The family of this 78-nucleotide RNA sequence is "chrB-a RNA". Rfam's curators put it in the seed alignment.
[Rfam]
RNA sequence: AACGCGGGGAUGCGAUCUCCCCUUUCAGGUCUAGCGGCCCAAGCAUCGCGUCCAUCGUUGUUGCAAGGACGCCGCAUG
Numbered sequence: 001a002a003c004g005c006g007g008g009g010a011u012g013c014g015a016u017c018u019c020c021c022c023u024u025u026c027a028g029g030u031c032u033a034g035c036g037g038c039c040c041a042a043g044c045a046u047c048g049c050g051u052c053c054a055u056c057g058u059u060g061u062u063g064c065a066a067g068g069a070c071g072c073c074g075c076a077u078g
Stems, first nucleotide, its partner, number of pairs: 006022005048072006